RNA sequence: AAGAGCCCCGAGUCAAUAAAGACUGAGGAGAUUGGCUCAGGAACAAAU
Numbered sequence: 001a002a003g004a005g006c007c008c009c010g011a012g013u014c015a016a017u018a019a020a021g022a023c024u025g026a027g028g029a030g031a032u033u034g035g036c037u038c039a040g041g042a043a044c045a046a047a048u
Stems, first nucleotide, its partner, number of pairs: 007041002010038008

Record summary:
A member of the RNA family "Plastid-rpl16 group II-D1 intron" from Epimedium borealiguizhouense, 48 nucleotides long. Its family is annotated with Group II intron splicing in the Gene Ontology. The organism belongs to Epimedium, within Eukaryota. It is one of the family's seed sequences. Rfam's curators write: Plastid-rpl16 is a non-coding RNA (ncRNA) recognised in plastids. It was recognised in and intronic region of a ribosome rpl16 gene.